[Rfam]
RNA: permuted transfer-messenger RNA
Organism: Pannonibacter tanglangensis
RNA sequence: GGCGAUAAAUGGUCAGUGCAAUAAGCCUAUCGGACCCGGGGGCGGUACCCGGCGCCUCCACCCAAGCCCGCAGGACGAUCAUCGUCCGGCGGGUUUCGGCGGGGGCGAAACAGGAUCGACGAGGGUGUAAAGACUGUUCUUUCGCUCGGCAUGGUACCACCGACAUCGGACCAAACUUAUAGUUGCCAAUGACAACUAUGCUCAGGACGUCGCUCUCGCCGCGUAA
Numbered sequence: 001g002g003c004g005a006u007a008a009a010u011g012g013u014c015a016g017u018g019c020a021a022u023a024a025g026c027c028u029a030u031c032g033g034a035c036c037c038g039g040g041g042g043c044g045g046u047a048c049c050c051g052g053c054g055c056c057u058c059c060a061c062c063c064a065a066g067c068c069c070g071c072a073g074g075a076c077g078a079u080c081a082u083c084g085u086c087c088g089g090c091g092g093g094u095u096u097c098g099g100c101g102g103g104g105g106c107g108a109a110a111c112a113g114g115a116u117c118g119a120c121g122a123g124g125g126u127g128u129a130a131a132g133a134c135u136g137u138u139c140u141u142u143c144g145c146u147c148g149g150c151a152u153g154g155u156a157c158c159a160c161c162g163a164c165a166u167c168g169g170a171c172c173a174a175a176c177u178u179a180u181a182g183u184u185g186c187c188a189a190u191g192a193c194a195a196c197u198a199u200g201c202u203c204a205g206g207a208c209g210u211c212g213c214u215c216u217c218g219c220c221g222c223g224u225a226a
Base pairs, nucleotide, nucleotide: 001146002145003144004143005142014136015135016134017133026125027124028123030122031121032120036052037051038050039049040048053107054106055105056104057103058102059101147162148161149160